[Rfam]
mir-29 microRNA precursor family: a 74-nucleotide RNA sequence from Daphnia pulex. Rfam 15.1 lists 3,328 matches to the family in 787 species. Its family is annotated with gene silencing by miRNA and RISC complex in the Gene Ontology. The literature on the family includes a 2001 paper in Cell by Ambros, "microRNAs: tiny regulators with great potential".
RNA sequence: GGAUCACUGAAUUCUUUUGAUGCCUAGAUGUAGUUUGUGACUAGAACUCUAGCACCAUUGGAAUUCAGUUUACC
Numbered sequence: 001g002g003a004u005c006a007c008u009g010a011a012u013u014c015u016u017u018u019g020a021u022g023c024c025u026a027g028a029u030g031u032a033g034u035u036u037g038u039g040a041c042u043a044g045a046a047c048u049c050u051a052g053c054a055c056c057a058u059u060g061g062a063a064u065u066c067a068g069u070u071u072a073c074c
Stems, first nucleotide, its partner, number of pairs: 001074002007068009018057002021054002025051004